[Rfam]
Shown here is a 279-nucleotide part of an RNA from Fusarium kuroshium, a member of the family "Eukaryotic large subunit ribosomal RNA". A search with the family's covariance model found it, with a score of 2815 bits. The source organism's lineage runs through Eukaryota, Pezizomycotina, sordariomyceta, Hypocreales and Fusarium solani species complex.
RNA sequence: GAGUUAUCUUUAUAUACAAGUAUUUAGGUAUUAAACCCCUAUGCGAAAUAAAAGUGAACAUAGGUAAGAGCUUCGGCGUAUUAUUGACUGAUCUUAAUGUAUUUAGAUAGAUUUAAGUAAGAGUAUAUAGGGCUAGACCUGAAAGAAGGUGAACUAUGCCUAUAUAGGGUGAAGCUAGAGGAAACUCUAGUGGAGGCUCGUAGUGGUUCUAAUGUGUAAAUCGAUCGUUAAAUAUGGGCAUAGGGGCGAAAGAUUAAUUGAACCUUCUAGUAGUUAGUU
Numbered sequence: 001g002a003g004u005u006a007u008c009u010u011u012a013u014a015u016a017c018a019a020g021u022a023u024u025u026a027g028g029u030a031u032u033a034a035a036c037c038c039c040u041a042u043g044c045g046a047a048a049u050a051a052a053a054g055u056g057a058a059c060a061u062a063g064g065u066a067a068g069a070g071c072u073u074c075g076g077c078g079u080a081u082u083a084u085u086g087a088c089u090g091a092u093c094u095u096a097a098u099g100u101a102u103u104u105a106g107a108u109a110g111a112u113u114u115a116a117g118u119a120a121g122a123g124u125a126u127a128u129a130g131g132g133c134u135a136g137a138c139c140u141g142a143a144a145g146a147a148g149g150u151g152a153a154c155u156a157u158g159c160c161u162a163u164a165u166a167g168g169g170u171g172a173a174g175c176u177a178g179a180g181g182a183a184a185c186u187c188u189a190g191u192g193g194a195g196g197c198u199c200g201u202a203g204u205g206g207u208u209c210u211a212a213u214g215u216g217u218a219a220a221u222c223g224a225u226c227g228u229u230a231a232a233u234a235u236g237g238g239c240a241u242a243g244g245g246g247c248g249a250a251a252g253a254u255u256a257a258u259u260g261a262a263c264c265u266u267c268u269a270g271u272a273g274u275u276a277g278u279u
Stems, first nucleotide, its partner, number of pairs: 005135002008132010020044003027037003048055002063085005070077002087118002089115003092111003098105002138277001141274001145267006154243011165231001167199004174191007203228004208224002212221001245255002